[Rfam]
RNA sequence: AUACUAUGAUGGUUGCAUGGUUCAGCAGUUUGAAUUCUGAAGAGAAGUAUCUGGUCUGAUGUAAAA
Numbered sequence: 001a002u003a004c005u006a007u008g009a010u011g012g013u014u015g016c017a018u019g020g021u022u023c024a025g026c027a028g029u030u031u032g033a034a035u036u037c038u039g040a041a042g043a044g045a046a047g048u049a050u051c052u053g054g055u056c057u058g059a060u061g062u063a064a065a066a
Stems, first nucleotide, its partner, number of pairs: 002063003006038001008036003013028004046052002
RNA: Small nucleolar RNA SNORD77
Organism: Oryctolagus cuniculus